Background
A member of the RNA family "Small nucleolar RNA SNORD53/SNORD92" from Mytilus galloprovincialis, 81 nucleotides long. A reference for the family is Kiss-Laszlo et al. (1996), "Site-specific ribose methylation of preribosomal RNA: a novel function for small nucleolar RNAs", Cell. The organism belongs to Mytilus, within Eukaryota. Clan: SNORD52 clan. Rfam 15.1 lists 2,250 matches to the family in 671 species. Pairs were carried over by alignment from the consensus structure. It scores 54 bits against the family's covariance model.
RNA sequence: CAGUAAUGAUGAUGCAAAGGACAUGGUUUCGCAUAUUUAUACUGAUAAUAAUGAUGACAUCAUCCUUGGCUGUCUGAACUG
Numbered sequence: 001c002a003g004u005a006a007u008g009a010u011g012a013u014g015c016a017a018a019g020g021a022c023a024u025g026g027u028u029u030c031g032c033a034u035a036u037u038u039a040u041a042c043u044g045a046u047a048a049u050a051a052u053g054a055u056g057a058c059a060u061c062a063u064c065c066u067u068g069g070c071u072g073u074c075u076g077a078a079c080u081g
Stems, first nucleotide, its partner, number of pairs: 001081004